Record summary:
This 164-nucleotide RNA from Paludibacterium denitrificans belongs to the Rfam family "FMN riboswitch aptamer (RFN element)". The source organism's lineage runs through Bacteria, Pseudomonadota, Betaproteobacteria, Neisseriales and Paludibacterium. The match comes from Rfam's covariance-model search (100 bits).

RNA sequence: GUACGUCUUCAGGGCGGGGUGCAACUCCCCACCGGCGGUAGGGUUCCUGACGGAACCAAGCCCGCGAGCGCUUGCCAAAGCAGCGGCAAGGUCAGCAGAUUUGGUGCGGAGCAACGCUCCCAUGCCAAAGCCGACGGUUAUAGUCCGGAUGAAAGAAGAUGACG
Numbered sequence: 001g002u003a004c005g006u007c008u009u010c011a012g013g014g015c016g017g018g019g020u021g022c023a024a025c026u027c028c029c030c031a032c033c034g035g036c037g038g039u040a041g042g043g044u045u046c047c048u049g050a051c052g053g054a055a056c057c058a059a060g061c062c063c064g065c066g067a068g069c070g071c072u073u074g075c076c077a078a079a080g081c082a083g084c085g086g087c088a089a090g091g092u093c094a095g096c097a098g099a100u101u102u103g104g105u106g107c108g109g110a111g112c113a114a115c116g117c118u119c120c121c122a123u124g125c126c127a128a129a130g131c132c133g134a135c136g137g138u139u140a141u142a143g144u145c146c147g148g149a150u151g152a153a154a155g156a157a158g159a160u161g162a163c164g
Base pairs, nucleotide, nucleotide: 004161005160006159007158008157009156010155017029018028019027031144032143033133034132035065036064037063038062060131061130068096069095100129101128102127103126104125105124106123135147136146137145